[Rfam]
The family of this 67-nucleotide sequence from Natrialba hulunbeirensis is "S15-Halobacteria ribosomal protein leader". Lineage of the source: Archaea > Methanobacteriati > Methanobacteriota > Natrialbaceae > Natrialba hulunbeirensis. The base pairs follow the family's consensus structure, which is taken from published work. The sequence is in the family's curated seed alignment. It is annotated as a cis-regulatory leader. Its Rfam clan is "Ribosomal Protein S15 Leader clan". For this family Rfam cites "Discovery of 20 novel ribosomal leader candidates in bacteria and archaea" (Eckert and Weinberg, BMC Microbiol, 2020).
RNA sequence: GUGGGAAGCGCACGGCCGCAAAUCUGACAGUGCCACUCGCUUGGGUGGCUUGGGAUUGCGGAAGUGC
Numbered sequence: 001g002u003g004g005g006a007a008g009c010g011c012a013c014g015g016c017c018g019c020a021a022a023u024c025u026g027a028c029a030g031u032g033c034c035a036c037u038c039g040c041u042u043g044g045g046u047g048g049c050u051u052g053g054g055a056u057u058g059c060g061g062a063a064g065u066g067c
Stems, first nucleotide, its partner, number of pairs: 010067004016061006024054002032049007